[Rfam]
RNA sequence: AUGUUAUCAAGAAAGGUGGAGGGAAUAGACCCUUUGAAACCUUAGCAACCCUUUGUGCAAACAAAGAAGGUGCUACAUUCUACUGCUUCGGCAGAGAGAUAACGA
Numbered sequence: 001a002u003g004u005u006a007u008c009a010a011g012a013a014a015g016g017u018g019g020a021g022g023g024a025a026u027a028g029a030c031c032c033u034u035u036g037a038a039a040c041c042u043u044a045g046c047a048a049c050c051c052u053u054u055g056u057g058c059a060a061a062c063a064a065a066g067a068a069g070g071u072g073c074u075a076c077a078u079u080c081u082a083c084u085g086c087u088u089c090g091g092c093a094g095a096g097a098g099a100u101a102a103c104g105a
Base pairs, nucleotide, nucleotide: 002104003103004102005101006100007099008098013043014042015041016040017039021032022031023030026082027081028080029079044074045073046072047071049070050069051066052065053064054063078097083094084093085092086091